[Rfam]
This 165-nucleotide RNA sequence from Sclerurus mexicanus belongs to the Rfam family "Small nucleolar RNA SNORD97". The match comes from Rfam's covariance-model search (104 bits). The family's consensus secondary structure was predicted with WAR. By type it is a C/D-box small nucleolar RNA. The literature on the family includes a 2003 paper in Nucleic Acids Res by Vitali et al., "Identification of 13 novel human modification guide RNAs". Its family is annotated with nucleolus and RNA processing in the Gene Ontology.

RNA sequence: UUGCCCAAUGAUUAUAGCAAGACGCGUUAUUAUGAGGACUAAUGCUGGAACUCUUUCUUUCUCCUCUUCCUUCUCCUCCUUUGCCCCUUCCUCUUUCACCCUACCCUCUCUCACUUUCCUUAGGGUAUCCAGCGUCCUAUGAGCAAGACUGAGAUAUGAGGGCAA
Numbered sequence: 001u002u003g004c005c006c007a008a009u010g011a012u013u014a015u016a017g018c019a020a021g022a023c024g025c026g027u028u029a030u031u032a033u034g035a036g037g038a039c040u041a042a043u044g045c046u047g048g049a050a051c052u053c054u055u056u057c058u059u060u061c062u063c064c065u066c067u068u069c070c071u072u073c074u075c076c077u078c079c080u081u082u083g084c085c086c087c088u089u090c091c092u093c094u095u096u097c098a099c100c101c102u103a104c105c106c107u108c109u110c111u112c113a114c115u116u117u118c119c120u121u122a123g124g125g126u127a128u129c130c131a132g133c134g135u136c137c138u139a140u141g142a143g144c145a146a147g148a149c150u151g152a153g154a155u156a157u158g159a160g161g162g163c164a165a
Stems, first nucleotide, its partner, number of pairs: 001165006035054003040049001